[Rfam]
RNA sequence: GUGAAGUGAUGAUUCAGUUUAUCCAUUCGCUGAGUGCACUGUACUGACCUUCUUCCAAGCCUUGGUUCCUGUUCUAGGAACUCGGGGCUACGUAGCCUCCAAAUGCCCUGCAGUUUGCGGUGUUCUACCGUGGACAGCUUGUGUGUUGGUAGACUACUGGUUAGAAUGGUUGGUGUCAGUAGGGAUGGGGUCCCUCUGGGUCCCAUCUCACCAAGAUGAGUGGUGGAAAUCUGAUCAC
Number, nucleotide and partner (000 for none) at each position: 001g000002u000003g000004a000005a000006g000007u000008g000009a000010u237011g236012a235013u234014u233015c000016a000017g230018u229019u228020u227021a000022u000023c223024c222025a221026u220027u219028c218029g217030c215031u214032g000033a000034g211035u210036g000037c000038a180039c179040u178041g177042u175043a174044c173045u172046g171047a170048c169049c168050u166051u165052c164053u163054u000055c160056c159057a000058a089059g088060c087061c086062u085063u084064g083065g081066u080067u079068c078069c077070u076071g000072u000073u000074c000075u000076a070077g069078g068079a067080a066081c065082u000083c064084g063085g062086g061087g060088c059089u058090a000091c000092g157093u156094a155095g154096c000097c152098u151099c000100c000101a000102a000103a000104u000105g144106c143107c141108c000109u000110g138111c137112a000113g135114u134115u133116u132117g131118c130119g129120g128121u127122g126123u000124u000125c000126u122127a121128c120129c119130g118131u117132g116133g115134a114135c113136a000137g111138c110139u000140u000141g107142u000143g106144u105145g000146u000147u000148g000149g000150u000151a098152g097153a000154c095155u094156a093157c092158u000159g056160g055161u000162u000163a053164g052165a051166a050167u000168g049169g048170u047171u046172g045173g044174u043175g042176u000177c041178a040179g039180u038181a000182g209183g208184g207185a206186u205187g204188g203189g202190g000191u200192c199193c000194c000195u000196c000197u000198g000199g192200g191201u000202c189203c188204c187205a186206u185207c184208u183209c182210a035211c034212c000213a000214a031215g030216a000217u029218g028219a027220g026221u025222g024223g023224u000225g000226g000227a020228a019229a018230u017231c000232u000233g014234a013235u012236c011237a010238c000
Rfam assigns this 238-nucleotide RNA sequence from Canis lupus to the family "Small nucleolar RNA SNORD17". Rfam 15.1 lists 1,015 matches to the family in 568 species. Rfam's curators put it in the seed alignment. Gene Ontology terms of the family: RNA processing and nucleolus. The source organism's lineage runs through Eukaryota, Opisthokonta, Deuterostomia, Amniota and Canis lupus. The family's RNA type in Rfam is C/D-box small nucleolar RNA.